[Rfam]
RNA sequence: GAGGUGGAGGCAGUUAAGACUUGCAGUGAUGUUUAGAGCAGUGCACACAUGAACAUCACUUUAAGUCUGGGCUGACUUUC
Numbered sequence: 001g002a003g004g005u006g007g008a009g010g011c012a013g014u015u016a017a018g019a020c021u022u023g024c025a026g027u028g029a030u031g032u033u034u035a036g037a038g039c040a041g042u043g044c045a046c047a048c049a050u051g052a053a054c055a056u057c058a059c060u061u062u063a064a065g066u067c068u069g070g071g072c073u074g075a076c077u078u079u080c
Stems, first nucleotide, its partner, number of pairs: 017068007026059010

Record summary
Shown here is an 80-nucleotide RNA sequence from Astyanax mexicanus, a member of the family "mir-499 microRNA precursor family". Gene Ontology terms of the family: RISC complex and miRNA-mediated post-transcriptional gene silencing. The organism belongs to Astyanax, within Eukaryota. A search with the family's covariance model found it, with a score of 84 bits. Pairs were carried over by alignment from the consensus structure, which was predicted with RNAalifold. A reference for the family is Mineno et al. (2006), "The expression profile of microRNAs in mouse embryos", Nucleic Acids Res.